[Rfam]
RNA: Aggregatibacter sRNA 20
RNA sequence: AAAACAAGUGCUAUCUUAAAUAGCCGACAUCUAUUUUGCUUUCCGAGUAGUGCCCCAAUGGGGCUUUUUUUUAUUCAG
Numbered sequence: 001a002a003a004a005c006a007a008g009u010g011c012u013a014u015c016u017u018a019a020a021u022a023g024c025c026g027a028c029a030u031c032u033a034u035u036u037u038g039c040u041u042u043c044c045g046a047g048u049a050g051u052g053c054c055c056c057a058a059u060g061g062g063g064c065u066u067u068u069u070u071u072u073a074u075u076c077a078g
Stems, first nucleotide, its partner, number of pairs: 002072003006068003022040003026036002029034001052064005